Rfam assigns this 88-nucleotide sequence from Shimia sp. SK013 to the family "Glycine riboswitch aptamer". Taxonomically the source falls in Shimia (Bacteria, Pseudomonadota, Alphaproteobacteria, Rhodobacterales). Pairs were carried over by alignment from the consensus structure.
[Rfam]
RNA sequence: ACAAGUGAAUCGGGAGAACCGGACGUGUCCGGUGCCGAAGGAGCAACCGCCCCGGAAACUCUCAGGCCGCAGGGACCGAUUUACCGCU
Numbered sequence: 001a002c003a004a005g006u007g008a009a010u011c012g013g014g015a016g017a018a019c020c021g022g023a024c025g026u027g028u029c030c031g032g033u034g035c036c037g038a039a040g041g042a043g044c045a046a047c048c049g050c051c052c053c054g055g056a057a058a059c060u061c062u063c064a065g066g067c068c069g070c071a072g073g074g075a076c077c078g079a080u081u082u083a084c085c086g087c088u
Stems, first nucleotide, its partner, number of pairs: 006083008019032004034067003037063002041061003047055002